[Rfam]
RNA sequence: AUACUUCUUCGGGGCAGGGUGAAAUUCCCAACCGACGGUAACGAUUAACAUCGAAGUCCGUGACCCGCGUUAAGCGGUUGAUCUAGUGAGAAUCUAGAACCGACAGUAUAGUCUGGAUGGGAGAAGAAGUCU
Numbered sequence: 001a002u003a004c005u006u007c008u009u010c011g012g013g014g015c016a017g018g019g020u021g022a023a024a025u026u027c028c029c030a031a032c033c034g035a036c037g038g039u040a041a042c043g044a045u046u047a048a049c050a051u052c053g054a055a056g057u058c059c060g061u062g063a064c065c066c067g068c069g070u071u072a073a074g075c076g077g078u079u080g081a082u083c084u085a086g087u088g089a090g091a092a093u094c095u096a097g098a099a100c101c102g103a104c105a106g107u108a109u110a111g112u113c114u115g116g117a118u119g120g121g122a123g124a125a126g127a128a129g130u131c132u
Stems, first nucleotide, its partner, number of pairs: 003130008017029003031112002033102002035061004056100002065077002082098005104115003
A member of the RNA family "FMN riboswitch aptamer (RFN element)" from Fructilactobacillus lindneri, 132 nucleotides long. The match comes from Rfam's covariance-model search (124 bits).